[Rfam]
RNA sequence: AAGAAAGUGACUGCCGCCCCGCACAGGGGCGAAGCUAAUAGACCGAUAAGAAAGCAAGUUUCACAGAAGCCGAAGCGCAUCAGACGGUUCAAAAAACACCAACCCCAAGCGCCAGCGACCGACCC
Numbered sequence: 001a002a003g004a005a006a007g008u009g010a011c012u013g014c015c016g017c018c019c020c021g022c023a024c025a026g027g028g029g030c031g032a033a034g035c036u037a038a039u040a041g042a043c044c045g046a047u048a049a050g051a052a053a054g055c056a057a058g059u060u061u062c063a064c065a066g067a068a069g070c071c072g073a074a075g076c077g078c079a080u081c082a083g084a085c086g087g088u089u090c091a092a093a094a095a096a097c098a099c100c101a102a103c104c105c106c107a108a109g110c111g112c113c114a115g116c117g118a119c120c121g122a123c124c125c
Base pairs, nucleotide, nucleotide: 011087012086013085015031016030017029018028019027020026060083109116110115
A member of the RNA family "Burkholderia sRNA Bp1_Cand684_SIPHT" from Caballeronia glathei, 125 nucleotides long. For this family Rfam cites "Computational discovery and RT-PCR validation of novel Burkholderia conserved and Burkholderia pseudomallei unique sRNAs" (Khoo et al., BMC Genomics, 2012). The family's consensus secondary structure was predicted with RNAalifold. The family has 14 seed sequences and 176 matches in Rfam 15.1.